The family of this 174-nucleotide sequence from Compostibacillus humi is "Group II catalytic intron D1-D4-3". The base pairs follow the family's consensus structure.
[Rfam]
RNA sequence: UGGGGGGUGACCGUCAUGUCUGAAGGAAGUCGGCGGCAAACUUCCGCCCCGAGGAACACGAACCUCAUAUAAGGCUAGGUAAUAUUGAAUGAGUCUGCCAAACAAGACAAAGUUCUUACUGCCAAAGGUAUUACAGAGUAAAUGAGGCGGGGACGUGGAAGGAAAGUCUGUACU
Numbered sequence: 001u002g003g004g005g006g007g008u009g010a011c012c013g014u015c016a017u018g019u020c021u022g023a024a025g026g027a028a029g030u031c032g033g034c035g036g037c038a039a040a041c042u043u044c045c046g047c048c049c050c051g052a053g054g055a056a057c058a059c060g061a062a063c064c065u066c067a068u069a070u071a072a073g074g075c076u077a078g079g080u081a082a083u084a085u086u087g088a089a090u091g092a093g094u095c096u097g098c099c100a101a102a103c104a105a106g107a108c109a110a111a112g113u114u115c116u117u118a119c120u121g122c123c124a125a126a127g128g129u130a131u132u133a134c135a136g137a138g139u140a141a142a143u144g145a146g147g148c149g150g151g152g153a154c155g156u157g158g159a160a161g162g163a164a165a166g167u168c169u170g171u172a173c174u
Base pairs, nucleotide, nucleotide: 001016002015003014005012006011029174032171036167037166041161042160043159044158045157046156047152048151049150050149051148063147064146065145066144067143068142074139075138076137079134080133081132082131083130084129087115088114089113090112093108094107095106096105

NCBI's taxonomy places the organism under Bacteria, Bacillati, Bacilli, Bacillaceae, Compostibacillus.